[Rfam]
RNA: SAM/SAH riboswitch aptamer
RNA sequence: CCCCUGUCACAACGGCUUCCUGGCGUGACGGGAUGAACCCAAUGGAGCA
Number, nucleotide and partner (000 for none) at each position: 001c000002c000003c000004c031005u030006g029007u028008c027009a026010c025011a000012a000013c022014g021015g048016c047017u046018u000019c045020c044021u014022g013023g000024c000025g010026u009027g008028a007029c006030g005031g004032g000033a000034u000035g000036a000037a000038c000039c000040c000041a000042a000043u000044g020045g019046a017047g016048c015049a000